[Rfam]
RNA sequence: GAAGUGAAAACCGAAAAACUUAAAUAGAGUAGGUA
Numbered sequence: 001g002a003a004g005u006g007a008a009a010a011c012c013g014a015a016a017a018a019c020u021u022a023a024a025u026a027g028a029g030u031a032g033g034u035a
Stems, first nucleotide, its partner, number of pairs: 002021004010034003
RNA: DUF805b RNA